[Rfam]
A member of the RNA family "small Cajal body-specific RNA 17" from Catagonus wagneri, 142 nucleotides long. Taxonomically the source falls in Catagonus (Eukaryota, Dipnotetrapodomorpha, Mammalia, Eutheria). Rfam's curators write: scaRNAs are a specific class of small nuclear RNAs which localise to the Cajal bodies and guide the modification of RNA polymerase II transcribed spliceosomal RNAs U1, U2, U4, U5 and U12. The complete human U12-22/U4-8 scaRNA is composed of two tandem C/D box domains (termed U12-22 and U4-8). The match comes from Rfam's covariance-model search (78 bits).
RNA sequence: CCUCCUGUUCCACCUUGCCCCCCCCAGUGAAGCCGCAGGAUUUUCCUUAUAUGAUUGGGCCCCGGGGCUUGGCAGCGCCGCUGGCCCGGGGCCUGAGAGGAUUAUAACACGUUUCUGGCGAGGUGGGGGCCGGGAACGGGGG
Number, nucleotide and partner (000 for none) at each position: 001c142002c141003u000004c140005c139006u138007g137008u136009u135010c134011c133012a000013c132014c000015u000016u000017g000018c000019c129020c128021c127022c126023c125024c000025c000026a000027g000028u000029g000030a000031a000032g000033c000034c000035g000036c000037a000038g000039g000040a000041u000042u000043u000044u000045c000046c000047u000048u000049a000050u000051a000052u000053g000054a000055u096056u095057g094058g093059g092060c091061c000062c089063c088064g000065g000066g000067g085068c084069u000070u083071g082072g081073c080074a000075g000076c000077g000078c000079c000080g073081c072082u071083g070084g068085c067086c000087c000088g063089g062090g000091g060092c059093c058094u057095g056096a055097g000098a000099g000100g000101a000102u000103u000104a000105u000106a000107a000108c000109a000110c000111g000112u000113u000114u000115c000116u000117g000118g000119c000120g000121a000122g000123g000124u000125g023126g022127g021128g020129g019130c000131c000132g013133g011134g010135a009136a008137c007138g006139g005140g004141g002142g001
The literature on the family includes a 2004 paper in Curr Biol by Tycowski et al., "Guide RNAs with 5' Caps and Novel Box C/D snoRNA-like Domains for Modification of snRNAs in Metazoa". Rfam 15.1 lists 262 matches to the family in 128 species.